A member of the RNA family "Plastid-rps18 3UTR RNA" from Anisodus acutangulus, 57 nucleotides long.
[Rfam]
RNA sequence: UGCAGGUAUUUUACGUCUAAGAAGCAACUAUCUCUUGUACAUAUCAUGUAUUAAUCU
Numbered sequence: 001u002g003c004a005g006g007u008a009u010u011u012u013a014c015g016u017c018u019a020a021g022a023a024g025c026a027a028c029u030a031u032c033u034c035u036u037g038u039a040c041a042u043a044u045c046a047u048g049u050a051u052u053a054a055u056c057u
Base pairs, nucleotide, nucleotide: 018037019036020035021034022033024031
The organism belongs to Anisodus, within Eukaryota. Pairs were carried over by alignment from the consensus structure, which was predicted with LocARNA. Plastid rps18 is a non-coding RNA (ncRNA) present in plastids. It was identified as a short stem-loop motif in the 3 prime untranslate region (3UTR) of rps18 gene. On this family, see Richter et al., Plant Commun 2023: "Retrograde signaling in plants: A critical review focusing on the GUN pathway and beyond".